[Rfam]
The record is a 59-nucleotide sequence from Myceligenerans xiligouense, which matches "msiK RNA" in Rfam. Taxonomically the source falls in Myceligenerans (Bacteria, Actinomycetota, Actinomycetes, Promicromonosporaceae). Pairs were carried over by alignment from the consensus structure, which is taken from published work.
RNA sequence: CAACGACACCCGACACAACGGAUCGUCCGGCACGUACCUGCCGGUGGAGGGAAGUCUCA
Numbered sequence: 001c002a003a004c005g006a007c008a009c010c011c012g013a014c015a016c017a018a019c020g021g022a023u024c025g026u027c028c029g030g031c032a033c034g035u036a037c038c039u040g041c042c043g044g045u046g047g048a049g050g051g052a053a054g055u056c057u058c059a
Stems, first nucleotide, its partner, number of pairs: 009051003014046002027044006